mir-29 microRNA precursor family: a 65-nucleotide RNA sequence from Lottia gigantea.

RNA sequence: GGGGUCUGCUUUCAAAUGAUGUAUAGAUUCAUAAUUCCUCUAGCACCAUUUGAAAUCAGUUUCUC
Numbered sequence: 001g002g003g004g005u006c007u008g009c010u011u012u013c014a015a016a017u018g019a020u021g022u023a024u025a026g027a028u029u030c031a032u033a034a035u036u037c038c039u040c041u042a043g044c045a046c047c048a049u050u051u052g053a054a055a056u057c058a059g060u061u062u063c064u065c
Stems, first nucleotide, its partner, number of pairs: 001065003004060001006059003010055005016049003020045002024042004
Pairs were carried over by alignment from the consensus structure, which was predicted with PFOLD. The source organism's lineage runs through Eukaryota, Opisthokonta, Bilateria, Protostomia and Lottia. This family represents the microRNA (miRNA) precursors mir-29. The sequence is in the family's curated seed alignment. A reference for the family is Ambros (2001), "microRNAs: tiny regulators with great potential", Cell.